[Rfam]
Bacterial small signal recognition particle RNA: a 101-nucleotide RNA sequence from Lactobacillus acidophilus.
From the family's description: The signal recognition particle (SRP) is a universally conserved ribonucleoprotein involved in the co-translational targeting of proteins to membranes.
It is one of the family's seed sequences.
It is annotated as a non-coding RNA gene.

RNA sequence: UCAUACUUGAUGGGCAAUGUUUGACCUCUGAAUCGUGUCAGGACCGGAAGGUAGCAGCACUAAGGUUGUUCAGGCAUGUGCCUUUUAUUAGAAAUUAACAA
Numbered sequence: 001u002c003a004u005a006c007u008u009g010a011u012g013g014g015c016a017a018u019g020u021u022u023g024a025c026c027u028c029u030g031a032a033u034c035g036u037g038u039c040a041g042g043a044c045c046g047g048a049a050g051g052u053a054g055c056a057g058c059a060c061u062a063a064g065g066u067u068g069u070u071c072a073g074g075c076a077u078g079u080g081c082c083u084u085u086u087a088u089u090a091g092a093a094a095u096u097a098a099c100a101a
Stems, first nucleotide, its partner, number of pairs: 004093001006091002009086002012083003015078001017077006024069002028065002035060004043052003